[Rfam]
RNA sequence: GGGUGUCGCGCGUUCGCGCACGGCAGGUUUGUCAGCGCUGGUCGGGCCGCCAGCG
Numbered sequence: 001g002g003g004u005g006u007c008g009c010g011c012g013u014u015c016g017c018g019c020a021c022g023g024c025a026g027g028u029u030u031g032u033c034a035g036c037g038c039u040g041g042u043c044g045g046g047c048c049g050c051c052a053g054c055g
Stems, first nucleotide, its partner, number of pairs: 005024004010019003036055007